[Rfam]
RNA sequence: GUUGCAGGUUUGAGGCCAUAGCAGAAGCACUUGCAGCGUGGCCUAUAAGAUUCCAGUGAAUCUGUGAAUUCUGCU
Number, nucleotide and partner (000 for none) at each position: 001g000002u000003u000004g000005c000006a000007g000008g000009u000010u000011u000012g000013a000014g043015g042016c041017c040018a000019u000020a075021g074022c073023a072024g071025a070026a069027g039028c038029a000030c000031u000032u000033g000034c000035a000036g000037c000038g028039u027040g017041g016042c015043c014044u000045a000046u000047a000048a063049g062050a061051u060052u059053c058054c000055a000056g000057u000058g053059a052060a051061u050062c049063u048064g000065u000066g000067a000068a000069u026070u025071c024072u023073g022074c021075u020